[Rfam]
RNA sequence: CCGGGGGCUAACGCCCCCGGCUACAUUGUGCCGCCCCUUGCGGGGCU
Numbered sequence: 001c002c003g004g005g006g007g008c009u010a011a012c013g014c015c016c017c018c019g020g021c022u023a024c025a026u027u028g029u030g031c032c033g034c035c036c037c038u039u040g041c042g043g044g045g046c047u
Stems, first nucleotide, its partner, number of pairs: 001020008033046005